[Rfam]
RNA: TPP riboswitch aptamer (THI element)
Organism: Lachnospiraceae bacterium A10
RNA sequence: AAUGAUUGCUAGGGGUGCAGGAGCGCUGAGAGAUCCAGUCGAAAUGCUGGAUUAACCCUUGAACUUGAUCCGGUUUGUACCGGCGUAAGGAAGCAACGUGUAAUCCUC
Numbered sequence: 001a002a003u004g005a006u007u008g009c010u011a012g013g014g015g016u017g018c019a020g021g022a023g024c025g026c027u028g029a030g031a032g033a034u035c036c037a038g039u040c041g042a043a044a045u046g047c048u049g050g051a052u053u054a055a056c057c058c059u060u061g062a063a064c065u066u067g068a069u070c071c072g073g074u075u076u077g078u079a080c081c082g083g084c085g086u087a088a089g090g091a092a093g094c095a096a097c098g099u100g101u102a103a104u105c106c107u108c
Stems, first nucleotide, its partner, number of pairs: 006096005011059004017026002033052007064089004070083004